[Rfam]
RNA sequence: GAUUCUCAAGAUCGUCCACCUCCUCGCGGUGAGAAUCGGGCAACUUUGGAUAUUCAAAGGCAAAGAGCGUGUUC
Dot-bracket structure: (((((((..........(((.......))))))))))......(((((......)))))...............
The family of this 74-nucleotide RNA sequence from Harpegnathos saltator is "HDV ribozyme from F. prausnitzii". For this family Rfam cites "Widespread occurrence of self-cleaving ribozymes" (Webb et al., Science, 2009).